[Rfam]
RNA: FMN riboswitch aptamer (RFN element)
RNA sequence: AGGCGUUCUCAGGGCGGGGCGAAAUUCCCCACCGGCGGUAUGUGGACCAGUUCACGAGCCCGCGAGCGGCCCAAUUUUUGGGUGUCAGCAGAUCUGGUGAGAGGCCAGAGCCGACGGUUAAAGUCCGGAUGGAAGAGAAUGAAG
Numbered sequence: 001a002g003g004c005g006u007u008c009u010c011a012g013g014g015c016g017g018g019g020c021g022a023a024a025u026u027c028c029c030c031a032c033c034g035g036c037g038g039u040a041u042g043u044g045g046a047c048c049a050g051u052u053c054a055c056g057a058g059c060c061c062g063c064g065a066g067c068g069g070c071c072c073a074a075u076u077u078u079u080g081g082g083u084g085u086c087a088g089c090a091g092a093u094c095u096g097g098u099g100a101g102a103g104g105c106c107a108g109a110g111c112c113g114a115c116g117g118u119u120a121a122a123g124u125c126c127g128g129a130u131g132g133a134a135g136a137g138a139a140u141g142a143a144g
Base pairs, nucleotide, nucleotide: 004141005140006139007138008137009136010135017029018028019027031124032123033113034112035063036062037061038060058111059110066089067088093109094108095107096106097105115127116126117125